This 74-nucleotide sequence from Oenothera berteroana belongs to the Rfam family "tRNA".
RNA sequence: AGGGAUGUAGCGCAGCUUGGUAGCGCGUUUGUUUUGGGUACAAAAUGUCACGGGUUCAAAUCCUGUCAUCCCUA
Numbered sequence: 001a002g003g004g005a006u007g008u009a010g011c012g013c014a015g016c017u018u019g020g021u022a023g024c025g026c027g028u029u030u031g032u033u034u035u036g037g038g039u040a041c042a043a044a045a046u047g048u049c050a051c052g053g054g055u056u057c058a059a060a061u062c063c064u065g066u067c068a069u070c071c072c073u074a
Stems, first nucleotide, its partner, number of pairs: 001073007010026004028044005050066005

The family's consensus secondary structure is taken from published work. Rfam's curators put it in the seed alignment. By type it is a transfer RNA. NCBI's taxonomy places the organism under Eukaryota, Streptophyta, Tracheophyta, Onagreae, Oenothera.